RNA sequence: UGGUAGAUUGUAUGGUGGGCCCUUCUCUGUGGGCUUCUCAUAGUGUACCCAUGCCAGAGUAAAUUGCUGCCUCGAACCAUUGCCCAGCCUCCUUACCUGUGGGCUGUUAGCACUGAAGAGGGUUGUACAGUA
Numbered sequence: 001u002g003g004u005a006g007a008u009u010g011u012a013u014g015g016u017g018g019g020c021c022c023u024u025c026u027c028u029g030u031g032g033g034c035u036u037c038u039c040a041u042a043g044u045g046u047a048c049c050c051a052u053g054c055c056a057g058a059g060u061a062a063a064u065u066g067c068u069g070c071c072u073c074g075a076a077c078c079a080u081u082g083c084c085c086a087g088c089c090u091c092c093u094u095a096c097c098u099g100u101g102g103g104c105u106g107u108u109a110g111c112a113c114u115g116a117a118g119a120g121g122g123u124u125g126u127a128c129a130g131u132a
Stems, first nucleotide, its partner, number of pairs: 001051001002049004011042005017036003020032002067125001069123004078115002083110001085106006
A member of the RNA family "Small nucleolar RNA SNORA42/SNORA80 family" from Cnephaeus nilssonii, 132 nucleotides long. NCBI's taxonomy places the organism under Eukaryota, Chordata, Theria, Eutheria, Cnephaeus. The base pairs follow the family's consensus structure, which was predicted with RNAalifold. By type it is an H/ACA-box small nucleolar RNA. From the family's description: The members of this family belong to the H/ACA class of snoRNAs that guide the sites of modification of uridines to pseudouridines. Human ACA42 (SNORA42) was cloned from HeLa cells by immunoprecipitation with anti-GAR1 antibody. Its is predicted to guide the pseudouridylation of residues U109 and U572 of 18S rRNA. ACA42 shares the same host gene with ACA26, ACA46, ACA50. This family also includes mammalian snoRNA ACA67 (SNORA80) which was identified by computational screening and its expression in mouse experimentally verified by Northern blot and primer extension analysis. It scores 104 bits against the family's covariance model. A reference for the family is Schattner et al. (2006), "A computational screen for mammalian pseudouridylation guide H/ACA RNAs", RNA. Rfam links the family to the GO terms RNA processing and nucleolus.